[Rfam]
RNA: Group II catalytic intron D1-D4-4
Organism: Clostridium thailandense
RNA sequence: CUAUCUGUGGAAGAACCAGCAGUAAUAAAAGGUAGAAGUUACUUAGCUAGGAUGGAAGUAUGGAUGGUAACUGAAAUGCUUAAGCCCAUCGACGAAAAUCUGGGUAAGCCAGGUGAGCAACCUAGCAGGCCGUAAUGAAA
Numbered sequence: 001c002u003a004u005c006u007g008u009g010g011a012a013g014a015a016c017c018a019g020c021a022g023u024a025a026u027a028a029a030a031g032g033u034a035g036a037a038g039u040u041a042c043u044u045a046g047c048u049a050g051g052a053u054g055g056a057a058g059u060a061u062g063g064a065u066g067g068u069a070a071c072u073g074a075a076a077u078g079c080u081u082a083a084g085c086c087c088a089u090c091g092a093c094g095a096a097a098a099u100c101u102g103g104g105u106a107a108g109c110c111a112g113g114u115g116a117g118c119a120a121c122c123u124a125g126c127a128g129g130c131c132g133u134a135a136u137g138a139a140a
Base pairs, nucleotide, nucleotide: 021043022042023041024040025039051090052089053088054087055086056081057080058079059078060077061076066071098114099113100112101111102110103109117133118132